[Rfam]
RNA: mir-660 microRNA precursor family
RNA sequence: CCCUUCUCCCCUACCCAUUGCGUAUUGAAGUUGUGAAUUCUCAGAACACCUCCUGCAUGCAUGGAUUACAGGAGAG
Numbered sequence: 001c002c003c004u005u006c007u008c009c010c011c012u013a014c015c016c017a018u019u020g021c022g023u024a025u026u027g028a029a030g031u032u033g034u035g036a037a038u039u040c041u042c043a044g045a046a047c048a049c050c051u052c053c054u055g056c057a058u059g060c061a062u063g064g065a066u067u068a069c070a071g072g073a074g075a076g
Base pairs, nucleotide, nucleotide: 003074004073005072006071007070015064016063017062018061020060021059022058023057025055027053029051030050032048033047034046